[Rfam]
RNA sequence: AAAUGACUUAAGAGGCAACUCUUAACCGGCCAGAUAAGGAAAAACCGAGAGGUUCAAGCUUAUAGGGCGGAAAACUCCGCAUAGUAGCGCUUAACAUAGCGGGGUGGCGGGUUCGGCGGUAGCGACUACAACGACGAACCAA
Numbered sequence: 001a002a003a004u005g006a007c008u009u010a011a012g013a014g015g016c017a018a019c020u021c022u023u024a025a026c027c028g029g030c031c032a033g034a035u036a037a038g039g040a041a042a043a044a045c046c047g048a049g050a051g052g053u054u055c056a057a058g059c060u061u062a063u064a065g066g067g068c069g070g071a072a073a074a075c076u077c078c079g080c081a082u083a084g085u086a087g088c089g090c091u092u093a094a095c096a097u098a099g100c101g102g103g104g105u106g107g108c109g110g111g112u113u114c115g116g117c118g119g120u121a122g123c124g125a126c127u128a129c130a131a132c133g134a135c136g137a138a139c140c141a142a
Base pairs, nucleotide, nucleotide: 008025009024010023011022012021013020014019026070027069028068030067031066034063035062036061037060038059043054044053045052046051074105075104076103077102078101079100080099088124089123090122091121110140111139112138113137114136115135117133118132
Background
The family of this 142-nucleotide RNA sequence is "IMES-2 RNA motif". On this family, see Weinberg et al., Nature 2009: "Exceptional structured noncoding RNAs revealed by bacterial metagenome analysis". The family's consensus secondary structure is taken from published work. By type it is a non-coding RNA gene.